[Rfam]
RNA sequence: AAGUGUUACAGCUCUUUUAAAAUUUUUCUAGCAGAUUUUCCAGUUUUUACCAGAAAACUCCA
Numbered sequence: 001a002a003g004u005g006u007u008a009c010a011g012c013u014c015u016u017u018u019a020a021a022a023u024u025u026u027u028c029u030a031g032c033a034g035a036u037u038u039u040c041c042a043g044u045u046u047u048u049a050c051c052a053g054a055a056a057a058c059u060c061c062a
Base pairs, nucleotide, nucleotide: 034059036057037056038055039054040053043050044049
The record is a 62-nucleotide RNA from Microcebus murinus, which matches "U7 small nuclear RNA" in Rfam. The base pairs follow the family's consensus structure, which was predicted with PFOLD.